Annotation
The family of this 154-nucleotide RNA sequence from Marisediminicola antarctica is "FMN riboswitch aptamer (RFN element)".
RNA sequence: UACGUGCUCCGGGGUCGGUGAAAUUCCGAACCGGCGGUGAUAGUCCGCGACCCGAGGCCACUCGCAAGAGAGGCAGCGGUUGAGCCGGUGGAAUUCCGGGACCGACAGUUAUGAGGCCGCAAGGUCUCUCAGUCUGGAUGAGAGGUAGCACGCG
Numbered sequence: 001u002a003c004g005u006g007c008u009c010c011g012g013g014g015u016c017g018g019u020g021a022a023a024u025u026c027c028g029a030a031c032c033g034g035c036g037g038u039g040a041u042a043g044u045c046c047g048c049g050a051c052c053c054g055a056g057g058c059c060a061c062u063c064g065c066a067a068g069a070g071a072g073g074c075a076g077c078g079g080u081u082g083a084g085c086c087g088g089u090g091g092a093a094u095u096c097c098g099g100g101a102c103c104g105a106c107a108g109u110u111a112u113g114a115g116g117c118c119g120c121a122a123g124g125u126c127u128c129u130c131a132g133u134c135u136g137g138a139u140g141a142g143a144g145g146u147a148g149c150a151c152g153c154g
Stems, first nucleotide, its partner, number of pairs: 003152006009145002016028003032104002034048004043102002052079002085099004106136003
It scores 75 bits against the family's covariance model. Gene Ontology term of the family: FMN binding. Rfam describes the family as follows. The RFN element is a highly conserved domain that is found frequently in the 5'-untranslated regions of prokaryotic mRNAs that encode for flavin mononucleotide (FMN) biosynthesis and transport proteins. Pairs were carried over by alignment from the consensus structure, which is taken from published work.